[Rfam]
The record is a 118-nucleotide RNA sequence from Vescimonas coprocola, which matches "pemK RNA" in Rfam.
A search with the family's covariance model found it, with a score of 56 bits.
By type it is a cis-regulatory element.
RNA sequence: CUAACGAUACUCCCGUCCAGCCAUAGUCCGAGCGUGAUAAGCGGCAUUUCGACCGUGAAGCCGUCGCAGGCAGUGGGGGCGGUCAUGAGAGAACCUCGUGAGGGUGAAAUUCCCGUGG
Numbered sequence: 001c002u003a004a005c006g007a008u009a010c011u012c013c014c015g016u017c018c019a020g021c022c023a024u025a026g027u028c029c030g031a032g033c034g035u036g037a038u039a040a041g042c043g044g045c046a047u048u049u050c051g052a053c054c055g056u057g058a059a060g061c062c063g064u065c066g067c068a069g070g071c072a073g074u075g076g077g078g079g080c081g082g083u084c085a086u087g088a089g090a091g092a093a094c095c096u097c098g099u100g101a102g103g104g105u106g107a108a109a110u111u112c113c114c115g116u117g118g
Base pairs, nucleotide, nucleotide: 012115013082014081015080016079017078018077083101084100085099087097088096089095102114103113104112